Source information: MIR821 microRNA precursor family: a 275-nucleotide sequence from Oryza barthii. The source organism's lineage runs through Eukaryota, Tracheophyta, commelinids, Oryzoideae and Oryza. Rfam links the family to the GO terms RISC complex and miRNA-mediated post-transcriptional gene silencing.

[Rfam]
RNA sequence: GAUUUCAACUGAAAAAGUCAUCAACAACAAAGUUGUAUAGCUCAUUAAGAUCUAUAACUUUUAUUUUGGUCAUUUCUUCAUCCGACAAAGUAAUAGUAAUAUUAUUCACAAAAUUCACAUAUCUCUCAUCUAGAUUUAUAAACUAUAACACAGAUUUGUAAUUUUUGUGAACAAUGUUACUAACACUUUGUUAGAUGAAGAAAUGACCAAAAUAAAAGUUGUAGAUCUUGAUGAGUUUUACAACUUUGUUGUUGAUGACUUUUUCAGUUGAAAUC
Numbered sequence: 001g002a003u004u005u006c007a008a009c010u011g012a013a014a015a016a017g018u019c020a021u022c023a024a025c026a027a028c029a030a031a032g033u034u035g036u037a038u039a040g041c042u043c044a045u046u047a048a049g050a051u052c053u054a055u056a057a058c059u060u061u062u063a064u065u066u067u068g069g070u071c072a073u074u075u076c077u078u079c080a081u082c083c084g085a086c087a088a089a090g091u092a093a094u095a096g097u098a099a100u101a102u103u104a105u106u107c108a109c110a111a112a113a114u115u116c117a118c119a120u121a122u123c124u125c126u127c128a129u130c131u132a133g134a135u136u137u138a139u140a141a142a143c144u145a146u147a148a149c150a151c152a153g154a155u156u157u158g159u160a161a162u163u164u165u166u167g168u169g170a171a172c173a174a175u176g177u178u179a180c181u182a183a184c185a186c187u188u189u190g191u192u193a194g195a196u197g198a199a200g201a202a203a204u205g206a207c208c209a210a211a212a213u214a215a216a217a218g219u220u221g222u223a224g225a226u227c228u229u230g231a232u233g234a235g236u237u238u239u240a241c242a243a244c245u246u247u248g249u250u251g252u253u254g255a256u257g258a259c260u261u262u263u264u265c266a267g268u269u270g271a272a273a274u275c
Base pairs, nucleotide, nucleotide: 014262015261016260017259018258019257020256021255023253024252026250027249030246031245032244033243034242035241036240037239039237040236041235042234044232045231046230047229048228049227050226051225052224053223055221056220057219058218059217060216061215062214063213064212065211066210067209069207070206071205072204073203074202075201077199078198079197080196081195084192085191086190087189088188089187090186091185094182095181096180097179098178099177101175102174103173105171106170107169108168109167110166111165112164115161117159118158119157121155122154131145132144133143135141136140
The literature on the family includes a 2006 paper in FEBS Lett by Luo et al., "Rice embryogenic calli express a unique set of microRNAs, suggesting regulatory roles of microRNAs in plant post-embryogenic development".